[Rfam]
RNA sequence: AAGGUAGCCUAUGCAACGGCUAUGGACUGGUUUAUGGCGGUGUGUUAUGCCUUC
Numbered sequence: 001a002a003g004g005u006a007g008c009c010u011a012u013g014c015a016a017c018g019g020c021u022a023u024g025g026a027c028u029g030g031u032u033u034a035u036g037g038c039g040g041u042g043u044g045u046u047a048u049g050c051c052u053u054c
Stems, first nucleotide, its partner, number of pairs: 002053002007050002010047002013045002016041002019038002022035005
The record is a 54-nucleotide RNA sequence from Pantherophis guttatus, which matches "Editing element of GABA-3 exon 9" in Rfam. The family's consensus secondary structure is taken from published work. The organism belongs to Pantherophis, within Eukaryota.